[Rfam]
Makes More Granules Regulator RNA (mmgR): a 77-nucleotide RNA from Stappia sp. ES.058. SuhB later renamed mmgR (makes more granules regulator) was a putative non-coding RNA found multiple times in the Agrobacterium tumefaciens genome and related alpha-proteobacteria. The source organism's lineage runs through Bacteria, Pseudomonadati, Pseudomonadota, Hyphomicrobiales and Stappia. By type it is a small RNA. The pairing is the family consensus, mapped onto this sequence.
RNA sequence: GAGCGUCGCCCUCCUUGGGCGUUUCCUCCCUAGACUCGGGCCGCCUCGCAAGAGUGCGGCCCUUUUUUUUGGUGGCG
Numbered sequence: 001g002a003g004c005g006u007c008g009c010c011c012u013c014c015u016u017g018g019g020c021g022u023u024u025c026c027u028c029c030c031u032a033g034a035c036u037c038g039g040g041c042c043g044c045c046u047c048g049c050a051a052g053a054g055u056g057c058g059g060c061c062c063u064u065u066u067u068u069u070u071g072g073u074g075g076c077g
Base pairs, nucleotide, nucleotide: 008020009019010018011017038062039061040060041059042058043057044056045054046053